Small nucleolar RNA snR60/Z15/Z230/Z193/J17: an 83-nucleotide RNA from Panagrolaimus sp. ES5. Taxonomically the source falls in Panagrolaimus (Eukaryota, Opisthokonta, Rhabditida, Panagrolaimomorpha). The family's RNA type in Rfam is C/D-box small nucleolar RNA.

RNA sequence: AUACGACCGAUGCUGAAACCAUAGUUCAACUUAAUCGAAUACGUGUUGACAAACAUUUCUUUCGCUCCUAUCUGAGGUCCCUU
Numbered sequence: 001a002u003a004c005g006a007c008c009g010a011u012g013c014u015g016a017a018a019c020c021a022u023a024g025u026u027c028a029a030c031u032u033a034a035u036c037g038a039a040u041a042c043g044u045g046u047u048g049a050c051a052a053a054c055a056u057u058u059c060u061u062u063c064g065c066u067c068c069u070a071u072c073u074g075a076g077g078u079c080c081c082u083u
Stems, first nucleotide, its partner, number of pairs: 005079004
Annotation: The base pairs follow the family's consensus structure. Rfam links the family to the GO terms nucleolus and RNA processing.